A member of the RNA family "Alphaproteobacterial sRNA ar9" from Aurantimonas aggregata, 154 nucleotides long.
RNA sequence: AUAAAGAAGGCGCCCGUGAGGCGCCGACUGCGGUCUAGUCUCGGGAGGACGCGGUUUCCGGCGCGACACAUCGUCGCAGCCCCGAACAAAGUCUUCGGUGUGAAAUCCAGGCACGCAACCUCAACCAUGCAAGGCGAAAGCCUUGCAUUUUUUU
Numbered sequence: 001a002u003a004a005a006g007a008a009g010g011c012g013c014c015c016g017u018g019a020g021g022c023g024c025c026g027a028c029u030g031c032g033g034u035c036u037a038g039u040c041u042c043g044g045g046a047g048g049a050c051g052c053g054g055u056u057u058c059c060g061g062c063g064c065g066a067c068a069c070a071u072c073g074u075c076g077c078a079g080c081c082c083c084g085a086a087c088a089a090a091g092u093c094u095u096c097g098g099u100g101u102g103a104a105a106u107c108c109a110g111g112c113a114c115g116c117a118a119c120c121u122c123a124a125c126c127a128u129g130c131a132a133g134g135c136g137a138a139a140g141c142c143u144u145g146c147a148u149u150u151u152u153u154u
Stems, first nucleotide, its partner, number of pairs: 001153001003151001009025005029117004038050004053107005060081003063077005082098005128147008
A search with the family's covariance model found it, with a score of 62 bits.